[Rfam]
RNA sequence: GGUCACGAGUACCAGCAACCCGCCGAUUCGGUGGGAAAAGCCCCGGCUUGCUGGUCGGCAACCCUCCAAGGCGAACAGCGCGACGAGACGUCGCAGCGGCGGGGUGCUCCGGGUGACGACCCGGCCAGGCGGAUGCCACUA
Number, nucleotide and partner (000 for none) at each position: 001g121002g120003u119004c118005a000006c000007g000008a000009g056010u000011a055012c054013c053014a052015g051016c050017a000018a000019c000020c000021c000022g047023c046024c045025g044026a000027u000028u000029c000030g000031g000032u000033g000034g000035g000036a000037a000038a000039a000040g000041c000042c000043c000044c025045g024046g023047c022048u000049u000050g016051c015052u014053g013054g012055u011056c009057g108058g107059c106060a000061a000062c104063c103064c102065u000066c099067c098068a000069a000070g000071g000072c000073g000074a000075a000076c000077a000078g000079c000080g000081c000082g000083a000084c000085g000086a000087g000088a000089c000090g000091u000092c000093g000094c000095a000096g000097c000098g067099g066100c000101g000102g064103g063104g062105u000106g059107c058108u057109c000110c000111g000112g000113g000114u000115g000116a000117c000118g004119a003120c002121c001122c000123g000124g000125c000126c000127a000128g000129g000130c000131g140132g139133a000134u000135g000136c000137c000138a000139c132140u131141a000
RNA: SAM (S-adenosyl methionine) riboswitch aptamer